[Rfam]
RNA: RNase MRP
RNA sequence: AUUCAGAAGGAAGAACUGCUCAAACCAGGCACACACACGAAGAAGGGCUUCGGCAGCUUCUUGAAGCCAGCCUGGGGGAAAGUCCCCGGACCAUUGGUAGAAAGUACCAGCCAUGAGGGUAAACGUGGAGGAGGGGGUCGCUGAGAGGAUCAUCGCAAGAUGCAUCUGAGCUUGCCGAGCACUCCAUCAUUCUGUCGUAAUCAUAGGAAUAUGCAGUUGAGGGACAACAGAUGAACGUUGUGACAUCUGGUGAGAGAUGAUUUCGAUGUGAUCUCGAUGGGCCAUACUGAUAGAUUGACAGAGUCUCUGACCUCAAUGGGGCUCACUCUUUUUCUGAA
Numbered sequence: 001a002u003u004c005a006g007a008a009g010g011a012a013g014a015a016c017u018g019c020u021c022a023a024a025c026c027a028g029g030c031a032c033a034c035a036c037a038c039g040a041a042g043a044a045g046g047g048c049u050u051c052g053g054c055a056g057c058u059u060c061u062u063g064a065a066g067c068c069a070g071c072c073u074g075g076g077g078g079a080a081a082g083u084c085c086c087c088g089g090a091c092c093a094u095u096g097g098u099a100g101a102a103a104g105u106a107c108c109a110g111c112c113a114u115g116a117g118g119g120u121a122a123a124c125g126u127g128g129a130g131g132a133g134g135g136g137g138u139c140g141c142u143g144a145g146a147g148g149a150u151c152a153u154c155g156c157a158a159g160a161u162g163c164a165u166c167u168g169a170g171c172u173u174g175c176c177g178a179g180c181a182c183u184c185c186a187u188c189a190u191u192c193u194g195u196c197g198u199a200a201u202c203a204u205a206g207g208a209a210u211a212u213g214c215a216g217u218u219g220a221g222g223g224a225c226a227a228c229a230g231a232u233g234a235a236c237g238u239u240g241u242g243a244c245a246u247c248u249g250g251u252g253a254g255a256g257a258u259g260a261u262u263u264c265g266a267u268g269u270g271a272u273c274u275c276g277a278u279g280g281g282c283c284a285u286a287c288u289g290a291u292a293g294a295u296u297g298a299c300a301g302a303g304u305c306u307c308u309g310a311c312c313u314c315a316a317u318g319g320g321g322c323u324c325a326c327u328c329u330u331u332u333u334c335u336g337a338a
Base pairs, nucleotide, nucleotide: 002338003337004336005335006334007333008332009331010330011329014218015217016216017215018214019213025076026074027073028072029071030070040062041061042060043059044058045057081323082322084321085320086319087318096108097107098106099105109120111118112117123187128184129183130182135176136175140171141170159166160165220308221307222306223305224304225303